[Rfam]
RNA: Small nucleolar RNA U19
Organism: Gossypium gossypioides
RNA sequence: AAUUGGCUUAGUUAGGAGGCAGAAAUCGAUUCGAAAAACAGAGAUAUCGGGUUCCUGAUGUUUCUGGUCGAUUUAACCAAGGCCUUUUUGAGGGGACUCUUGGCUUCUCUUUCUUCACCCAUUGUCCCCCAAGCAGCCUUGGACAUUU
Numbered sequence: 001a002a003u004u005g006g007c008u009u010a011g012u013u014a015g016g017a018g019g020c021a022g023a024a025a026u027c028g029a030u031u032c033g034a035a036a037a038a039c040a041g042a043g044a045u046a047u048c049g050g051g052u053u054c055c056u057g058a059u060g061u062u063u064c065u066g067g068u069c070g071a072u073u074u075a076a077c078c079a080a081g082g083c084c085u086u087u088u089u090g091a092g093g094g095g096a097c098u099c100u101u102g103g104c105u106u107c108u109c110u111u112u113c114u115u116c117a118c119c120c121a122u123u124g125u126c127c128c129c130c131a132a133g134c135a136g137c138c139u140u141g142g143a144c145a146u147u148u
Base pairs, nucleotide, nucleotide: 004021005020007018008017009016038068039067077142078141079140080139081138082137083136087133088132089131090130092129093128094127095126096125097124100121